[Rfam]
RNA sequence: AGCUCUAUAGUUCAACGGAUAGAACAAAAGUUUCCUAAACUUUAGAUUCAGGUUCGAUUCCUGAUGGAGCUA
Numbered sequence: 001a002g003c004u005c006u007a008u009a010g011u012u013c014a015a016c017g018g019a020u021a022g023a024a025c026a027a028a029a030g031u032u033u034c035c036u037a038a039a040c041u042u043u044a045g046a047u048u049c050a051g052g053u054u055c056g057a058u059u060c061c062u063g064a065u066g067g068a069g070c071u072a
Stems, first nucleotide, its partner, number of pairs: 001071007010025004027043005048064005
RNA: tRNA
Organism: Flavobacteriaceae bacterium MAR_2010_72